[Rfam]
Source information: Rfam assigns this 118-nucleotide RNA sequence from Streptomyces boluensis to the family "Streptomyces-metK RNA".
RNA sequence: GCGAGACGCAUGGUCCAGCGGCCGGAGGCGACCGAUAAACUGGUCACGGUACGACGCCGGGCGCAGCUCCCGGCCGGACCGUCAAUGAUCAGCCAGCAGCCGCUGCAACCCCAGGGAG
Numbered sequence: 001g002c003g004a005g006a007c008g009c010a011u012g013g014u015c016c017a018g019c020g021g022c023c024g025g026a027g028g029c030g031a032c033c034g035a036u037a038a039a040c041u042g043g044u045c046a047c048g049g050u051a052c053g054a055c056g057c058c059g060g061g062c063g064c065a066g067c068u069c070c071c072g073g074c075c076g077g078a079c080c081g082u083c084a085a086u087g088a089u090c091a092g093c094c095a096g097c098a099g100c101c102g103c104u105g106c107a108a109c110c111c112c113a114g115g116g117a118g
Base pairs, nucleotide, nucleotide: 048080049079050078052076053075056074058072059071060070061069094105095104096103097102
A search with the family's covariance model found it, with a score of 120 bits. The family's consensus secondary structure is taken from published work. Lineage of the source: Bacteria > Bacillati > Actinomycetota > Actinomycetes > Streptomyces.